[Rfam]
RNA: c-di-GMP-I riboswitch aptamer
Organism: Desulfosporosinus sp. Tol-M
RNA sequence: GAUUAAUAAGGGCAAAUUCAGUGAAAGCUGAAGACGCAAAAUCACGGGCCUAAUGUCUUAAGACGAUGGCAGCCGGAUUACCGAC
Numbered sequence: 001g002a003u004u005a006a007u008a009a010g011g012g013c014a015a016a017u018u019c020a021g022u023g024a025a026a027g028c029u030g031a032a033g034a035c036g037c038a039a040a041a042u043c044a045c046g047g048g049c050c051u052a053a054u055g056u057c058u059u060a061a062g063a064c065g066a067u068g069g070c071a072g073c074c075g076g077a078u079u080a081c082c083g084a085c
Base pairs, nucleotide, nucleotide: 012037013036017032018031019030020029021028022027040079041078042077043076045075046074047073048070049069050068055064056063057062